[Rfam]
RNA: Makes More Granules Regulator RNA (mmgR)
Organism: Roseicella frigidaeris
RNA sequence: GUUGUCUGCCUUUCUUGGACGUUUCCUCCCUAAACUCGGCGGUGCCUCUGGCACCGCCUUUUUUUUGCCCCGG
Numbered sequence: 001g002u003u004g005u006c007u008g009c010c011u012u013u014c015u016u017g018g019a020c021g022u023u024u025c026c027u028c029c030c031u032a033a034a035c036u037c038g039g040c041g042g043u044g045c046c047u048c049u050g051g052c053a054c055c056g057c058c059u060u061u062u063u064u065u066u067g068c069c070c071c072g073g
Base pairs, nucleotide, nucleotide: 008020010018011017038058039057040056041055042054043053044052045051046050